[Rfam]
RNA sequence: CGUACAGUGUAGACGAAGAGUAGUAACUGAAACGGGUACUAAAAGAGAGCUGAUGGUUGGUGAAAAUCAGUGUAACUGUUGCUGCGAAUGGACUUCCGAGCUUCCAAACCGAACCCAAUUGGCAGUAGGCUUUGGCGAACUGGCCUUAUCGUUACAAAAGGCACGCAUUAAAGCAUAAAUCUUGCUUGAUGCUGCUAAGUGAGCUGUUAAUCAGCUAAUUAAGGUGGUACCACGGGUCCUCUCGUCCUUAUU
Numbered sequence: 001c002g003u004a005c006a007g008u009g010u011a012g013a014c015g016a017a018g019a020g021u022a023g024u025a026a027c028u029g030a031a032a033c034g035g036g037u038a039c040u041a042a043a044a045g046a047g048a049g050c051u052g053a054u055g056g057u058u059g060g061u062g063a064a065a066a067u068c069a070g071u072g073u074a075a076c077u078g079u080u081g082c083u084g085c086g087a088a089u090g091g092a093c094u095u096c097c098g099a100g101c102u103u104c105c106a107a108a109c110c111g112a113a114c115c116c117a118a119u120u121g122g123c124a125g126u127a128g129g130c131u132u133u134g135g136c137g138a139a140c141u142g143g144c145c146u147u148a149u150c151g152u153u154a155c156a157a158a159a160g161g162c163a164c165g166c167a168u169u170a171a172a173g174c175a176u177a178a179a180u181c182u183u184g185c186u187u188g189a190u191g192c193u194g195c196u197a198a199g200u201g202a203g204c205u206g207u208u209a210a211u212c213a214g215c216u217a218a219u220u221a222a223g224g225u226g227g228u229a230c231c232a233c234g235g236g237u238c239c240u241c242u243c244g245u246c247c248u249u250a251u252u
Stems, first nucleotide, its partner, number of pairs: 007101002015096004027084001029082001031080001037074003049071006104134001106132002109129002136151003202216005221249004232245005
This 252-nucleotide RNA from Mesobacillus subterraneus belongs to the Rfam family "T-box leader".
The family's RNA type in Rfam is cis-regulatory leader.
NCBI's taxonomy places the organism under Bacteria, Bacillati, Bacilli, Bacillaceae, Mesobacillus.
Rfam links the family to the GO term tRNA binding.